[Rfam]
RNA sequence: GGUCUGUGAUGAAUAGUAAAAGGUCUGAUUACCCAGGACUUGCAGUUCCAUGACCUUUUCUCCCAGCAGUUUCUCACCAGUCACAACACAGUAGUGAUGUGGCUGGCAGAGUGUUUGCUGAUAACUUGUGAUGUGCUCAGUUCAUGUUAGCCUGAAGCAUUGGAGACAUGACUGAGAUCAGCAUCCAACAGUUUUUCUUGAAGGAGUUUGGGGUCUUGGAUUGCUAUAACUGGACUGUGAUCUGACUUCUCUGCUGAGACC
Numbered sequence: 001g002g003u004c005u006g007u008g009a010u011g012a013a014u015a016g017u018a019a020a021a022g023g024u025c026u027g028a029u030u031a032c033c034c035a036g037g038a039c040u041u042g043c044a045g046u047u048c049c050a051u052g053a054c055c056u057u058u059u060c061u062c063c064c065a066g067c068a069g070u071u072u073c074u075c076a077c078c079a080g081u082c083a084c085a086a087c088a089c090a091g092u093a094g095u096g097a098u099g100u101g102g103c104u105g106g107c108a109g110a111g112u113g114u115u116u117g118c119u120g121a122u123a124a125c126u127u128g129u130g131a132u133g134u135g136c137u138c139a140g141u142u143c144a145u146g147u148u149a150g151c152c153u154g155a156a157g158c159a160u161u162g163g164a165g166a167c168a169u170g171a172c173u174g175a176g177a178u179c180a181g182c183a184u185c186c187a188a189c190a191g192u193u194u195u196u197c198u199u200g201a202a203g204g205a206g207u208u209u210g211g212g213g214u215c216u217u218g219g220a221u222u223g224c225u226a227u228a229a230c231u232g233g234a235c236u237g238u239g240a241u242c243u244g245a246c247u248u249c250u251c252u253g254c255u256g257a258g259a260c261c
Base pairs, nucleotide, nucleotide: 001261002260003259004258034244035243036242037241039239047220048219049218050217052215053214060206061205062204063203064120065119066118067117068116069115077106078105079104080103081102082101083100084099085098128186130185131184132183133182134181143170144169145168146167147166148165151162
Dot-bracket structure: ((((.............................((((.(.......((((.((......((((((((((.......(((((((((............)))))))))........)))))).......(.(((((........((((((..(..........)..))))))..........))))))................)))).......)).))))..................).)))).............))))
The family of this 261-nucleotide RNA from Eubucco bourcierii is "Small Cajal body specific RNA 6".
The base pairs follow the family's consensus structure, which is taken from published work.
By type it is a small Cajal body RNA.
A search with the family's covariance model found it, with a score of 129 bits.
Gene Ontology terms of the family: nucleolus and RNA processing.
Rfam describes the family as follows. U88 is small Cajal body specific RNA (scaRNA). scaRNAs are a novel class of small nuclear RNAs which localise to the Cajal bodies. U88 is found associated with both fibrillarin and Gar1p and co-localises with coilin in Cajal bodies.
On this family, see Huttenhofer et al., EMBO J 2001: "RNomics: an experimental approach that identifies 201 candidates for novel, small, non-messenger RNAs in mouse".